This 104-nucleotide RNA sequence from Melghirimyces thermohalophilus belongs to the Rfam family "pan motif".

[Rfam]
RNA sequence: GCGGCGGCAUCAUAUAGAGCCGCACGCUGCAACCUGUUUAUUCUCAGUUUUCGGCCAAGUAUAAACAAAAUCUGCUCUGAGCCCUCGGGGACGGAGACAGGGGU
Numbered sequence: 001g002c003g004g005c006g007g008c009a010u011c012a013u014a015u016a017g018a019g020c021c022g023c024a025c026g027c028u029g030c031a032a033c034c035u036g037u038u039u040a041u042u043c044u045c046a047g048u049u050u051u052c053g054g055c056c057a058a059g060u061a062u063a064a065a066c067a068a069a070a071u072c073u074g075c076u077c078u079g080a081g082c083c084c085u086c087g088g089g090g091a092c093g094g095a096g097a098c099a100g101g102g103g104u
Base pairs, nucleotide, nucleotide: 001027002026003025004023005022006021007020008019010018011017072100073099074098075096076095077094078093079092082090083089